[Rfam]
RNA sequence: AUAUAAGCAAAUUUGACUUUCUAAGUUCAUUCAAUUAAUGAUGUAUGUGGUUCAUAUUAUGGACCACAUACAUCAUUAAUUGAAUGAGCCUAAAAAGUAAAAUUUGCUUAUAU
Numbered sequence: 001a002u003a004u005a006a007g008c009a010a011a012u013u014u015g016a017c018u019u020u021c022u023a024a025g026u027u028c029a030u031u032c033a034a035u036u037a038a039u040g041a042u043g044u045a046u047g048u049g050g051u052u053c054a055u056a057u058u059a060u061g062g063a064c065c066a067c068a069u070a071c072a073u074c075a076u077u078a079a080u081u082g083a084a085u086g087a088g089c090c091u092a093a094a095a096a097g098u099a100a101a102a103u104u105u106g107c108u109u110a111u112a113u
Stems, first nucleotide, its partner, number of pairs: 002112006009105004013100003017097004022092002026088018048066004
The record is a 113-nucleotide sequence from Medicago truncatula, which matches "MIR2593 microRNA precursor family" in Rfam. NCBI's taxonomy places the organism under Eukaryota, Spermatophyta, Fabales, Fabaceae, Medicago. The family has 7 seed sequences and 1,262 matches in Rfam 15.1. It scores 96 bits against the family's covariance model. Its family is annotated with RISC complex and miRNA-mediated post-transcriptional gene silencing in the Gene Ontology.